[Rfam]
RNA sequence: CAGUUGCCUAGGGUAGCUCCCGAAAAGCAGAACCUGUGACUGCCUGGCAACUGAUUUGUAAUCACAGG
Numbered sequence: 001c002a003g004u005u006g007c008c009u010a011g012g013g014u015a016g017c018u019c020c021c022g023a024a025a026a027g028c029a030g031a032a033c034c035u036g037u038g039a040c041u042g043c044c045u046g047g048c049a050a051c052u053g054a055u056u057u058g059u060a061a062u063c064a065c066a067g068g
Stems, first nucleotide, its partner, number of pairs: 001053008011021003027043004033068006
RNA: int-alpA RNA